[Rfam]
RNA: MIR473 microRNA precursor family
RNA sequence: GUUUCCUCCUCUCCCACAAAGGCUUCUAACGUGCUGGCACAGAAACCCAACGUUGGAAGCCUUUGAGGGAGAGGAGAAAGCAA
Numbered sequence: 001g002u003u004u005c006c007u008c009c010u011c012u013c014c015c016a017c018a019a020a021g022g023c024u025u026c027u028a029a030c031g032u033g034c035u036g037g038c039a040c041a042g043a044a045a046c047c048c049a050a051c052g053u054u055g056g057a058a059g060c061c062u063u064u065g066a067g068g069g070a071g072a073g074g075a076g077a078a079a080g081c082a083a
Stems, first nucleotide, its partner, number of pairs: 006076010017065010